[Rfam]
RNA sequence: UAGCUUUGUCCUAAGUCAAACUUCUCUAACUUUGAUCAAGUUUUUAGAAAAAAUAUAUUAUCAUCUACAAGUUCAAUAAAUGCAUUAUCAAAAUAUAUUUCAUGGAGAAUUUAAUGGAACUAGUUUGAUAUUCUAGAUAUUGGUGCAUUUUUCUAUAAACUUGAUCAGAGUUAGAGAGGUUUGACUUGGGACAAAGCUAA
Numbered sequence: 001u002a003g004c005u006u007u008g009u010c011c012u013a014a015g016u017c018a019a020a021c022u023u024c025u026c027u028a029a030c031u032u033u034g035a036u037c038a039a040g041u042u043u044u045u046a047g048a049a050a051a052a053a054u055a056u057a058u059u060a061u062c063a064u065c066u067a068c069a070a071g072u073u074c075a076a077u078a079a080a081u082g083c084a085u086u087a088u089c090a091a092a093a094u095a096u097a098u099u100u101c102a103u104g105g106a107g108a109a110u111u112u113a114a115u116g117g118a119a120c121u122a123g124u125u126u127g128a129u130a131u132u133c134u135a136g137a138u139a140u141u142g143g144u145g146c147a148u149u150u151u152u153c154u155a156u157a158a159a160c161u162u163g164a165u166c167a168g169a170g171u172u173a174g175a176g177a178g179g180u181u182u183g184a185c186u187u188g189g190g191a192c193a194a195a196g197c198u199a200a
Base pairs, nucleotide, nucleotide: 005195006194007193008192009191011189012188013187014186015185016184017183018182019181020180021179022178023177024176025175026174031169032168033167034166035165045155046154047153048152049151050150051149052148056145057144058143060141063138064137065136066135067134069132073128074127075126076125
RNA: MIR1435 microRNA precursor family
Organism: Miscanthus lutarioriparius